[Rfam]
RNA sequence: GGCAGAUGAUGUUUUUCUCACGAUGGUCUGCGGAUGCCCUUGUUGGCAGUGCCGAAGCACUAAUAGUUCAGCUGAUGCCAGGAG
Numbered sequence: 001g002g003c004a005g006a007u008g009a010u011g012u013u014u015u016u017c018u019c020a021c022g023a024u025g026g027u028c029u030g031c032g033g034a035u036g037c038c039c040u041u042g043u044u045g046g047c048a049g050u051g052c053c054g055a056a057g058c059a060c061u062a063a064u065a066g067u068u069c070a071g072c073u074g075a076u077g078c079c080a081g082g083a084g
Stems, first nucleotide, its partner, number of pairs: 001079004